[Rfam]
Rfam assigns this 107-nucleotide sequence from Paenibacillus sp. GP183 to the family "Guanidine-I riboswitch aptamer".
RNA sequence: AUGUUAGUUUUCUAGGGUUCCGCGUCUCUUUUAGGAAGAGUCGGCUGGUCCGAGAGAAAACGCGCGUCCCACUGACGCGUACACGGAGGGGGAAAAGCCCGGGAGAU
Numbered sequence: 001a002u003g004u005u006a007g008u009u010u011u012c013u014a015g016g017g018u019u020c021c022g023c024g025u026c027u028c029u030u031u032u033a034g035g036a037a038g039a040g041u042c043g044g045c046u047g048g049u050c051c052g053a054g055a056g057a058a059a060a061c062g063c064g065c066g067u068c069c070c071a072c073u074g075a076c077g078c079g080u081a082c083a084c085g086g087a088g089g090g091g092g093a094a095a096a097g098c099c100c101g102g103g104a105g106a107u
Base pairs, nucleotide, nucleotide: 007061008060009059010058011057012056015051016050020048021047022045023043024042026040027039028038029037030036062080063079064078065077066076067075068074082102084105088100089099090098
Lineage of the source: Bacteria > Bacillati > Caryophanales > Paenibacillaceae > Paenibacillus.